RNA sequence: ACACGGAAAGGAGGUGGUCCAAGAAGUGAUUUCCCAUUGGACGCGUGAGGUGACUGGGCGCUAGCGCGCUCGAUGCGCGAGAGCGCAAUCCACACCAGCUCACCGCAGCCCGCGGACCGCGGCGGUCGUCCCCGUCGCGCGGCACCACCUCCUCACCGAGGGUCGGCCAGGUCCGCGGGCUGUUCCUC
Numbered sequence: 001a002c003a004c005g006g007a008a009a010g011g012a013g014g015u016g017g018u019c020c021a022a023g024a025a026g027u028g029a030u031u032u033c034c035c036a037u038u039g040g041a042c043g044c045g046u047g048a049g050g051u052g053a054c055u056g057g058g059c060g061c062u063a064g065c066g067c068g069c070u071c072g073a074u075g076c077g078c079g080a081g082a083g084c085g086c087a088a089u090c091c092a093c094a095c096c097a098g099c100u101c102a103c104c105g106c107a108g109c110c111c112g113c114g115g116a117c118c119g120c121g122g123c124g125g126u127c128g129u130c131c132c133c134g135u136c137g138c139g140c141g142g143c144a145c146c147a148c149c150u151c152c153u154c155a156c157c158g159a160g161g162g163u164c165g166g167c168c169a170g171g172u173c174c175g176c177g178g179g180c181u182g183u184u185c186c187u188c
Base pairs, nucleotide, nucleotide: 015056016055017054018053059085060084061083062082065079066078067077068076069075106182107181108180109179110178111177112176113175114174115173116172117171118170120137121136122135123134124133125132
Description:
The family of this 188-nucleotide RNA sequence from Nostocoides japonicum is "Actinobacteria sRNA Ms_IGR-5". On this family, see Li et al., RNA 2013: "Identification of small RNAs in Mycobacterium smegmatis using heterologous Hfq". The source organism's lineage runs through Bacteria, Actinomycetes, Intrasporangiaceae, Nostocoides and Nostocoides japonicum. By type it is a small RNA.